mir-2060 microRNA precursor family: a 94-nucleotide sequence from Branchiostoma floridae. Rfam links the family to the GO terms RISC complex and miRNA-mediated post-transcriptional gene silencing. Lineage of the source: Eukaryota > Eumetazoa > Deuterostomia > Branchiostomatidae > Branchiostoma.
[Rfam]
RNA sequence: GUAUAUGUGUAAAUGUAUGGUGUUCAACACCAAGGACAAGUCUGUUUGCUUGUAUGUGGAUGGUGUUCAGCACCAAGGACAGGUCUGUUUGCUU
Numbered sequence: 001g002u003a004u005a006u007g008u009g010u011a012a013a014u015g016u017a018u019g020g021u022g023u024u025c026a027a028c029a030c031c032a033a034g035g036a037c038a039a040g041u042c043u044g045u046u047u048g049c050u051u052g053u054a055u056g057u058g059g060a061u062g063g064u065g066u067u068c069a070g071c072a073c074c075a076a077g078g079a080c081a082g083g084u085c086u087g088u089u090u091g092c093u094u
Stems, first nucleotide, its partner, number of pairs: 005084002008081003018075007026067007034055001036053006